[Rfam]
RNA sequence: CCGUGCAGCCGGGGAGAUAGCGGUGCCCUGUACCUGCAAUCCGCUACAGCAGGGGUGAUGUCUUGUCCGAGGGUAUUCUAUUGUAGAGCUGCCCUUUAAAAGUGAUGUUGACGUCUGGGUCUUACGCAACAGGAAUUCGUGAACCGUGUCAGGUCAGGAAUGAAGCAGCACUAAGCGAAACCUCUUGUGUGCCGUAAGGGUGCCUGGGCCGAGUUAACUAGAAAGGUAACGUUUAUGAAGAAUAUUCGAAGCGAGGCGCACGG
Numbered sequence: 001c002c003g004u005g006c007a008g009c010c011g012g013g014g015a016g017a018u019a020g021c022g023g024u025g026c027c028c029u030g031u032a033c034c035u036g037c038a039a040u041c042c043g044c045u046a047c048a049g050c051a052g053g054g055g056u057g058a059u060g061u062c063u064u065g066u067c068c069g070a071g072g073g074u075a076u077u078c079u080a081u082u083g084u085a086g087a088g089c090u091g092c093c094c095u096u097u098a099a100a101a102g103u104g105a106u107g108u109u110g111a112c113g114u115c116u117g118g119g120u121c122u123u124a125c126g127c128a129a130c131a132g133g134a135a136u137u138c139g140u141g142a143a144c145c146g147u148g149u150c151a152g153g154u155c156a157g158g159a160a161u162g163a164a165g166c167a168g169c170a171c172u173a174a175g176c177g178a179a180a181c182c183u184c185u186u187g188u189g190u191g192c193c194g195u196a197a198g199g200g201u202g203c204c205u206g207g208g209c210c211g212a213g214u215u216a217a218c219u220a221g222a223a224a225g226g227u228a229a230c231g232u233u234u235a236u237g238a239a240g241a242a243u244a245u246u247c248g249a250a251g252c253g254a255g256g257c258g259c260a261c262g263g
Base pairs, nucleotide, nucleotide: 001263002262003261004260005259006258008056009055010054011029012028013027014026016024018022033053034052035051036050037049062255063254064253065252066251071247072246073245074244075243077241078240079239081238082237083236084235085234086233087232090228091227094225095224096223097222102218103217104215105214106213113209114208115207116206117205118204119203120202121198122197123196124195125194126193127189128188130187131186132185133184134183136179137178138177139176140175146171147170148169149168154163155162156161

The family of this 263-nucleotide RNA from Anaerosporobacter mobilis is "Bacterial large signal recognition particle RNA". By type it is a non-coding RNA gene. Clan: SRP clan. The base pairs follow the family's consensus structure, which is taken from published work.